RNA sequence: ACGGACAAACCCGAAAAUCCGUAAAAAAGAGUAGGAA
Numbered sequence: 001a002c003g004g005a006c007a008a009a010c011c012c013g014a015a016a017a018u019c020c021g022u023a024a025a026a027a028a029g030a031g032u033a034g035g036a037a
Base pairs, nucleotide, nucleotide: 002021003020004019005018011035012034
A member of the RNA family "DUF805b RNA", 37 nucleotides long. The family's consensus secondary structure is taken from published work.